[Rfam]
RNA sequence: UGGACAGGGGGGUUCCCGCUCACGGGCGGGGCCUGUCCGACCGGCCGUGCGGAACGUGCGGCCAGUGGUUGUCGCUCGGGGGUGAACGCCG
Numbered sequence: 001u002g003g004a005c006a007g008g009g010g011g012g013u014u015c016c017c018g019c020u021c022a023c024g025g026g027c028g029g030g031g032c033c034u035g036u037c038c039g040a041c042c043g044g045c046c047g048u049g050c051g052g053a054a055c056g057u058g059c060g061g062c063c064a065g066u067g068g069u070u071g072u073c074g075c076u077c078g079g080g081g082g083u084g085a086a087c088g089c090c091g
Base pairs, nucleotide, nucleotide: 001039002038003037004036005035006034007033008032014031015030016029017028018027019026020025043063044062045061046060047059048058049057050056

About this RNA:
The family of this 91-nucleotide RNA sequence from Streptomyces filamentosus is "che1 RNA". The source organism's lineage runs through Bacteria, Actinomycetes, Streptomycetaceae, Streptomyces and Streptomyces filamentosus. Rfam classes the family as a small RNA.